[Rfam]
RNA sequence: UGUUCCAACCCUACUUUUCAAGCCCCCAAGCUGUGCCUUGAGUGGCUUUAGGGUAUGGACA
Number, nucleotide and partner (000 for none) at each position: 001u061002g060003u059004u058005c057006c000007a000008a054009c053010c052011c051012u050013a049014c000015u000016u000017u000018u000019c000020a048021a047022g046023c045024c044025c042026c000027c040028a039029a038030g037031c035032u000033g000034u000035g031036c000037c030038u029039u028040g027041a000042g025043u000044g024045g023046c022047u021048u020049u013050a012051g011052g010053g009054u008055a000056u000057g005058g004059a003060c002061a001
RNA: HBV RNA encapsidation signal epsilon
Organism: Shrew hepatitis B virus